[Rfam]
RNA sequence: CAAUGGGGUAGAGGUGCGAAGCUUAUGAGUAAAAAUCUGGAGUUUGGACGACGUGGAAAGAUUUUGAAGGGAAGCUUUGCCGAAGCGGUUGAUUUUGUCCGGAGUCAACUGGCUGGGGCUGCAUUGAAUAAGUGCAGCACUGUCACUCAAGGAAUCCGGGAGUGGAGAGCUACUGAACAA
Numbered sequence: 001c002a003a004u005g006g007g008g009u010a011g012a013g014g015u016g017c018g019a020a021g022c023u024u025a026u027g028a029g030u031a032a033a034a035a036u037c038u039g040g041a042g043u044u045u046g047g048a049c050g051a052c053g054u055g056g057a058a059a060g061a062u063u064u065u066g067a068a069g070g071g072a073a074g075c076u077u078u079g080c081c082g083a084a085g086c087g088g089u090u091g092a093u094u095u096u097g098u099c100c101g102g103a104g105u106c107a108a109c110u111g112g113c114u115g116g117g118g119c120u121g122c123a124u125u126g127a128a129u130a131a132g133u134g135c136a137g138c139a140c141u142g143u144c145a146c147u148c149a150a151g152g153a154a155u156c157c158g159g160g161a162g163u164g165g166a167g168a169g170c171u172a173c174u175g176a177a178c179a180a
Stems, first nucleotide, its partner, number of pairs: 007174005016080009032065007084114003087110008115141002118138008143165006
The record is a 180-nucleotide RNA sequence from Evansella caseinilytica, which matches "Lysine riboswitch aptamer" in Rfam. The family's consensus secondary structure is taken from published work. A search with the family's covariance model found it, with a score of 128 bits.